Notes: Small nucleolar RNA SNORD79: a 79-nucleotide RNA sequence from Denticeps clupeoides. About the family: snoRNA U79 or Z22 is found in intron 7 of the gas5 gene in humans and is also present in mice. Gene Ontology terms of the family: RNA processing and nucleolus.

RNA sequence: UCCAGUAAAUGAUGUUUCAUUUCAAUGGGAAUCUCUCUGACUAAAUGUGAAGGAAAUUCUGGUGUUAUCUGAUACUGUU
Numbered sequence: 001u002c003c004a005g006u007a008a009a010u011g012a013u014g015u016u017u018c019a020u021u022u023c024a025a026u027g028g029g030a031a032u033c034u035c036u037c038u039g040a041c042u043a044a045a046u047g048u049g050a051a052g053g054a055a056a057u058u059c060u061g062g063u064g065u066u067a068u069c070u071g072a073u074a075c076u077g078u079u
Base pairs, nucleotide, nucleotide: 003077004076005075006074007073